RNA: Fluoride riboswitch aptamer (crcB RNA motif)
RNA sequence: UCCGCCGCUGGAGAUGGCAUUCCUCCCUAUAACCGCUGGGCUUCCAGCUGAUGAUGCCUACGAAUUC
Numbered sequence: 001u002c003c004g005c006c007g008c009u010g011g012a013g014a015u016g017g018c019a020u021u022c023c024u025c026c027c028u029a030u031a032a033c034c035g036c037u038g039g040g041c042u043u044c045c046a047g048c049u050g051a052u053g054a055u056g057c058c059u060a061c062g063a064a065u066u067c
Base pairs, nucleotide, nucleotide: 010026011025012024013023016058017057018056019055020054021053035048036047037046038045